[Rfam]
Annotation: Rfam assigns this 296-nucleotide RNA from Eumeta japonica to the family "Nuclear RNase P". Taxonomically the source falls in Eumeta (Eukaryota, Mandibulata, Endopterygota, Heteroneura).
RNA sequence: UCAGUGUCAAUCUCGUACAUGGGACACACAUACUGAGUGCUUGUCACUAUCUUUGUCUCGGGAAGGUCUGAGUAAAAGUCUUGUGUGCCUUUUUACGCUCUAGCCGGGCGCACUUCUUAAAAGGGUGGCAGGGGAACCAGAAAUGCUAGUGUACUGUACAGCUGAUGACACUUGUUCUGUGGGAGCGAGAGGAGGUGUUUACAGUGUCACUGUUGGAAACCCCUGCGACUGGCAAUUUUAGCACAAUCUACGAGGUGGCUUUGGCCAUAACUCAAUUCAGACUAGUCUCUCACUGA
Numbered sequence: 001u002c003a004g005u006g007u008c009a010a011u012c013u014c015g016u017a018c019a020u021g022g023g024a025c026a027c028a029c030a031u032a033c034u035g036a037g038u039g040c041u042u043g044u045c046a047c048u049a050u051c052u053u054u055g056u057c058u059c060g061g062g063a064a065g066g067u068c069u070g071a072g073u074a075a076a077a078g079u080c081u082u083g084u085g086u087g088c089c090u091u092u093u094u095a096c097g098c099u100c101u102a103g104c105c106g107g108g109c110g111c112a113c114u115u116c117u118u119a120a121a122a123g124g125g126u127g128g129c130a131g132g133g134g135a136a137c138c139a140g141a142a143a144u145g146c147u148a149g150u151g152u153a154c155u156g157u158a159c160a161g162c163u164g165a166u167g168a169c170a171c172u173u174g175u176u177c178u179g180u181g182g183g184a185g186c187g188a189g190a191g192g193a194g195g196u197g198u199u200u201a202c203a204g205u206g207u208c209a210c211u212g213u214u215g216g217a218a219a220c221c222c223c224u225g226c227g228a229c230u231g232g233c234a235a236u237u238u239u240a241g242c243a244c245a246a247u248c249u250a251c252g253a254g255g256u257g258g259c260u261u262u263g264g265c266c267a268u269a270a271c272u273c274a275a276u277u278c279a280g281a282c283u284a285g286u287c288u289c290u291c292a293c294u295g296a
Base pairs, nucleotide, nucleotide: 001296002295003294004293009288012254013253014252015251016250017249021059022058023057024056025055036048037047038046039045068280069279070278071277072276077230078229079228080227096110097109098108099107100106111127112126113125114124115123128226129225130224131223132222133221134220147212148211149210150209151208255268256267257266258265259264

By type it is a ribozyme.